The family of this 53-nucleotide sequence from Stakelama sediminis is "ffh sRNA". Pairs were carried over by alignment from the consensus structure, which is taken from published work. On this family, see Meyer et al., BMC Genomics 2009: "Identification of candidate structured RNAs in the marine organism 'Candidatus Pelagibacter ubique'". A search with the family's covariance model found it, with a score of 37 bits. Rfam classes the family as a small RNA.

[Rfam]
RNA sequence: CGUCCCACGGGACGACGCCGGCCGACGAGGUUUCGUCCGCCGGCGUGUUUUGC
Number, nucleotide and partner (000 for none) at each position: 001c000002g000003u000004c000005c000006c000007a000008c000009g000010g000011g000012a000013c000014g000015a000016c045017g044018c043019c042020g041021g040022c039023c000024g000025a036026c035027g034028a033029g000030g000031u000032u000033u028034c027035g026036u025037c000038c000039g022040c021041c020042g019043g018044c017045g016046u000047g000048u000049u000050u000051u000052g000053c000